[Rfam]
R2 RNA element: a 193-nucleotide RNA from Drosophila willistoni. The family's consensus secondary structure is taken from published work. Rfam describes the family as follows. This family represents the 3' UTR region of the R2 retrotransposable element. By type it is a cis-regulatory element. The source organism's lineage runs through Eukaryota, Ecdysozoa, Pterygota, Brachycera and Sophophora. The family has 15 seed sequences and 3,698 matches in Rfam 15.1.

RNA sequence: AUGUACUAACCUCUAGUUUCUCUUAUAAUUUUGCCAUCUAAAAAGGUACAAACAUCGUAUUGUCAAAAAUAGGUGGUUUUAGUACGUAGGCGCUGUGGGACUUCAUUGUCCCGAUGAUGCAGCGAAUCGUGCAUACGAGAUUGUCCAGUAGUUGGUUGCUCGUAUCUUUAGAAGAUUUCCUUCAUCGGCGAUC
Numbered sequence: 001a002u003g004u005a006c007u008a009a010c011c012u013c014u015a016g017u018u019u020c021u022c023u024u025a026u027a028a029u030u031u032u033g034c035c036a037u038c039u040a041a042a043a044a045g046g047u048a049c050a051a052a053c054a055u056c057g058u059a060u061u062g063u064c065a066a067a068a069a070u071a072g073g074u075g076g077u078u079u080u081a082g083u084a085c086g087u088a089g090g091c092g093c094u095g096u097g098g099g100a101c102u103u104c105a106u107u108g109u110c111c112c113g114a115u116g117a118u119g120c121a122g123c124g125a126a127u128c129g130u131g132c133a134u135a136c137g138a139g140a141u142u143g144u145c146c147a148g149u150a151g152u153u154g155g156u157u158g159c160u161c162g163u164a165u166c167u168u169u170a171g172a173a174g175a176u177u178u179c180c181u182u183c184a185u186c187g188g189c190g191a192u193c
Base pairs, nucleotide, nucleotide: 019048021046022045023044024043054192055191056190057189058188072186073185074184075183076179082132083131084130085129086128091124092123093122094121095120096119097112098111099110100109101108134164135163136162137161138160139159